[Rfam]
RNA sequence: UUUGCCUAAAUGAUGACAGGUGCAGAAACUAAGCACUAGGGGUACCUGUUUGAAGCCAGGCAAU
Numbered sequence: 001u002u003u004g005c006c007u008a009a010a011u012g013a014u015g016a017c018a019g020g021u022g023c024a025g026a027a028a029c030u031a032a033g034c035a036c037u038a039g040g041g042g043u044a045c046c047u048g049u050u051u052g053a054a055g056c057c058a059g060g061c062a063a064u
Stems, first nucleotide, its partner, number of pairs: 002063004015050009029039003
Rfam assigns this 64-nucleotide RNA from Lepisosteus oculatus to the family "Selenocysteine insertion sequence 1". By type it is a cis-regulatory element. Lineage of the source: Eukaryota > Vertebrata > Holostei > Lepisosteidae > Lepisosteus. Pairs were carried over by alignment from the consensus structure, which is taken from published work. The incorporation of selenocysteine into a protein sequence is directed by an in-frame UGA codon (usually a stop codon) within the coding region of the mRNA. Selenoprotein mRNAs contain a conserved secondary structure in the 3' UTR that is required for the distinction of UGA stop from UGA selenocysteine. The selenocysteine insertion sequence (SECIS) is around 60 nt in length and adopts a hairpin structure which is sufficiently well-defined and conserved to act as a computational screen for selenoprotein genes.